[Rfam]
RNA sequence: CGCCGUCAUGCAGGAGAGCGUCUUACCCGCAACGGGAAGGCCGCCGAAGGCGCAAGCGCACCCGCAAUCGCUCAGGCAAAAGGACUGCGUGACCUUU
Numbered sequence: 001c002g003c004c005g006u007c008a009u010g011c012a013g014g015a016g017a018g019c020g021u022c023u024u025a026c027c028c029g030c031a032a033c034g035g036g037a038a039g040g041c042c043g044c045c046g047a048a049g050g051c052g053c054a055a056g057c058g059c060a061c062c063c064g065c066a067a068u069c070g071c072u073c074a075g076g077c078a079a080a081a082g083g084a085c086u087g088c089g090u091g092a093c094c095u096u097u
Stems, first nucleotide, its partner, number of pairs: 006092008020041004043077003046073002050071003056065002
RNA: Glycine riboswitch aptamer
Organism: Silvimonas terrae